[Rfam]
RNA sequence: GCUCGUUGAAAAUCACCCCCGGCUCCGGCCGUGGCCGCGGGUGAGAUUCGGCGCCCACAGCGUCCCGGGCCCUCAGCUCACGGCCCACUGCCGGUGUGGGAGCGUGAAACCCAGGCCCCGACAGGC
Numbered sequence: 001g002c003u004c005g006u007u008g009a010a011a012a013u014c015a016c017c018c019c020c021g022g023c024u025c026c027g028g029c030c031g032u033g034g035c036c037g038c039g040g041g042u043g044a045g046a047u048u049c050g051g052c053g054c055c056c057a058c059a060g061c062g063u064c065c066c067g068g069g070c071c072c073u074c075a076g077c078u079c080a081c082g083g084c085c086c087a088c089u090g091c092c093g094g095u096g097u098g099g100g101a102g103c104g105u106g107a108a109a110c111c112c113a114g115g116c117c118c119c120g121a122c123a124g125g126c
Stems, first nucleotide, its partner, number of pairs: 005052006013044004021036004067119001069117001071115003078107005086098003
Notes: The family of this 126-nucleotide RNA sequence from Dipodomys ordii is "Small nucleolar RNA ACA64". A search with the family's covariance model found it, with a score of 122 bits. Rfam links the family to the GO terms RNA processing and nucleolus.